[Rfam]
The record is a 107-nucleotide sequence from Pontibacter fetidus, which matches "SAM riboswitch aptamer (S box leader)" in Rfam.
It scores 75 bits against the family's covariance model.
Taxonomically the source falls in Pontibacter (Bacteria, Bacteroidota, Cytophagales, Hymenobacteraceae).
The base pairs follow the family's consensus structure, which is taken from published work.
RNA sequence: UUCUUAUCAAGAAAGACCGAGGGAAAGGGCCCUGUGACGUCUUAGCAACCUUGGCAAACUUGGUGCUAACUCCCUUCCGGAAGCGUGCUGUCCGGAAAAGAUAAGAU
Numbered sequence: 001u002u003c004u005u006a007u008c009a010a011g012a013a014a015g016a017c018c019g020a021g022g023g024a025a026a027g028g029g030c031c032c033u034g035u036g037a038c039g040u041c042u043u044a045g046c047a048a049c050c051u052u053g054g055c056a057a058a059c060u061u062g063g064u065g066c067u068a069a070c071u072c073c074c075u076u077c078c079g080g081a082a083g084c085g086u087g088c089u090g091u092c093c094g095g096a097a098a099a100g101a102u103a104a105g106a107u
Stems, first nucleotide, its partner, number of pairs: 002106007013043005021032003026075004044067004049063002052058001071099001076096006